RNA sequence: UACACAAACUAUAUAACAACUCGUAUAAUCUUGGGAAUAUGGCCCAUAAGUUUCUACCAAGUUACCGCAAAUGACUUGACUACGAGUGAUACACUGACAUUU
Numbered sequence: 001u002a003c004a005c006a007a008a009c010u011a012u013a014u015a016a017c018a019a020c021u022c023g024u025a026u027a028a029u030c031u032u033g034g035g036a037a038u039a040u041g042g043c044c045c046a047u048a049a050g051u052u053u054c055u056a057c058c059a060a061g062u063u064a065c066c067g068c069a070a071a072u073g074a075c076u077u078g079a080c081u082a083c084g085a086g087u088g089a090u091a092c093a094c095u096g097a098c099a100u101u102u
Stems, first nucleotide, its partner, number of pairs: 019087007029049001032046004058078007
Dot-bracket structure: ..................(((((((...(..((((.......))))..)........(((((((.......)))))))..)))))))...............
RNA: Purine riboswitch aptamer